Description: This 86-nucleotide RNA from Fregetta grallaria belongs to the Rfam family "Selenocysteine transfer RNA". Taxonomically the source falls in Fregetta (Eukaryota, Sarcopterygii, Coelurosauria, Neoaves). On this family, see Mizutani and Goto, FEBS Lett 2000: "Eukaryotic selenocysteine tRNA has the 9/4 secondary structure". The family's consensus secondary structure is taken from published work.
RNA sequence: GCCCGGAUGAUCCUCAGUAGUUUAGGGUGCAGGCUUCAAAGCUGUAGUUGUCUAGCAAUAGGGUGGUUCAUUUCCACCUUUUGGGC
Number, nucleotide and partner (000 for none) at each position: 001g086002c085003c084004c083005g082006g081007a080008u000009g078010a000011u000012c027013c026014u025015c000016a023017g022018u000019a000020g000021u000022u017023u016024a000025g014026g013027g012028u046029g045030c044031a043032g042033g000034c000035u000036u000037c000038a000039a000040a000041g000042c032043u031044g030045u029046a028047g000048u061049u060050g059051u058052c000053u000054a000055g000056c000057a000058a051059u050060a049061g048062g000063g077064u076065g075066g074067u000068u000069c000070a000071u000072u000073u000074c066075c065076a064077c063078c009079u000080u007081u006082u005083g004084g003085g002086c001